RNA: permuted transfer-messenger RNA
Organism: Aquisalinus flavus
RNA sequence: GGCGAUAAAAGGCGUUCAUAAUAAGCGGAUCGGACCCGGGGGCGGUACCCGGCGGCUCCACCAGAGGACCUGAUAGCUGAUAGACAUCAGUCAUUUCGGGUCUUGCGGCGGGGCCGAAAUAGGAUCGACGAACGUGUAAAGGCUCUGCUUUCGCCCGGAUGGCUUCCGUUAUUGGGCCAUUAUUAUAGUUGCAAAUGACAACUACGAUGAAGAGUUCGCACUCGCAGCGUAA
Numbered sequence: 001g002g003c004g005a006u007a008a009a010a011g012g013c014g015u016u017c018a019u020a021a022u023a024a025g026c027g028g029a030u031c032g033g034a035c036c037c038g039g040g041g042g043c044g045g046u047a048c049c050c051g052g053c054g055g056c057u058c059c060a061c062c063a064g065a066g067g068a069c070c071u072g073a074u075a076g077c078u079g080a081u082a083g084a085c086a087u088c089a090g091u092c093a094u095u096u097c098g099g100g101u102c103u104u105g106c107g108g109c110g111g112g113g114c115c116g117a118a119a120u121a122g123g124a125u126c127g128a129c130g131a132a133c134g135u136g137u138a139a140a141g142g143c144u145c146u147g148c149u150u151u152c153g154c155c156c157g158g159a160u161g162g163c164u165u166c167c168g169u170u171a172u173u174g175g176g177c178c179a180u181u182a183u184u185a186u187a188g189u190u191g192c193a194a195a196u197g198a199c200a201a202c203u204a205c206g207a208u209g210a211a212g213a214g215u216u217c218g219c220a221c222u223c224g225c226a227g228c229g230u231a232a
Stems, first nucleotide, its partner, number of pairs: 001155005014145001017142001026134002030131003036052005053116007156168004